[Rfam]
Overview
This 54-nucleotide RNA belongs to the Rfam family "chrB-b RNA".
RNA sequence: CCGGGUCUGUUGCAGACACCCGGUCCUAAAAGACGAUUCCGUCUCAAGUGCUGC
Numbered sequence: 001c002c003g004g005g006u007c008u009g010u011u012g013c014a015g016a017c018a019c020c021c022g023g024u025c026c027u028a029a030a031a032g033a034c035g036a037u038u039c040c041g042u043c044u045c046a047a048g049u050g051c052u053g054c
Stems, first nucleotide, its partner, number of pairs: 001023006012054004029044001032043004
It is annotated as a cis-regulatory element.